This 134-nucleotide RNA from Mesocricetus auratus belongs to the Rfam family "Small nucleolar RNA SNORA42/SNORA80 family".
The match comes from Rfam's covariance-model search (148 bits).
The family's RNA type in Rfam is H/ACA-box small nucleolar RNA.
The members of this family belong to the H/ACA class of snoRNAs that guide the sites of modification of uridines to pseudouridines.
The base pairs follow the family's consensus structure, which was predicted with RNAalifold.
Gene Ontology terms of the family: RNA processing and nucleolus.
Lineage of the source: Eukaryota > Euteleostomi > Sarcopterygii > Tetrapoda > Mesocricetus.
The literature on the family includes a 2006 paper in RNA by Schattner et al., "A computational screen for mammalian pseudouridylation guide H/ACA RNAs".
RNA sequence: GCAUGGAUUUGGAUUUAUGGCAGGCUUGUCACCCUGGGCCUCUCAUAGUGUCCCAUGCUAGAGCAAACUGGCUCCUAACCAUUGCCCGGCCUCUGCGCCUGUAGGCUGCUGGCACUGAAGUGGGUCGCACAGAG
Numbered sequence: 001g002c003a004u005g006g007a008u009u010u011g012g013a014u015u016u017a018u019g020g021c022a023g024g025c026u027u028g029u030c031a032c033c034c035u036g037g038g039c040c041u042c043u044c045a046u047a048g049u050g051u052c053c054c055a056u057g058c059u060a061g062a063g064c065a066a067a068c069u070g071g072c073u074c075c076u077a078a079c080c081a082u083u084g085c086c087c088g089g090c091c092u093c094u095g096c097g098c099c100u101g102u103a104g105g106c107u108g109c110u111g112g113c114a115c116u117g118a119a120g121u122g123g124g125u126c127g128c129a130c131a132g133a134g
Stems, first nucleotide, its partner, number of pairs: 001058004005053004015048006022041003025037002069127006080117002085112002087108006
Dot-bracket structure: ((((((((......((((((.(((((.........)).))).)))))).)))).))))..........((((((.....((...((((((((..........))))))..))...))....)))))).......